[Rfam]
RNA sequence: AUGACGAGGGGUGAUGGAGUCCACCUGAACGGCCCUUUCUUUCAUAAGGAAAGGGAUGAUGACUCCUGUGAGAGA
Numbered sequence: 001a002u003g004a005c006g007a008g009g010g011g012u013g014a015u016g017g018a019g020u021c022c023a024c025c026u027g028a029a030c031g032g033c034c035c036u037u038u039c040u041u042u043c044a045u046a047a048g049g050a051a052a053g054g055g056a057u058g059a060u061g062a063c064u065c066c067u068g069u070g071a072g073a074g075a
Base pairs, nucleotide, nucleotide: 010025011024012023013022016066017065018064019063020062021061033055034054035053036052037051038050039049040048041047
This 75-nucleotide sequence from Leptospirillum sp. Group II '5-way CG' belongs to the Rfam family "Fluoride riboswitch aptamer (crcB RNA motif)".
Gene Ontology terms of the family: response to fluoride and positive regulation of gene expression.
Rfam 15.1 lists 2,293 matches to the family in 1,982 species.
The source organism's lineage runs through Bacteria, Pseudomonadati, Nitrospiria, Leptospirillum and Leptospirillum sp. Group II.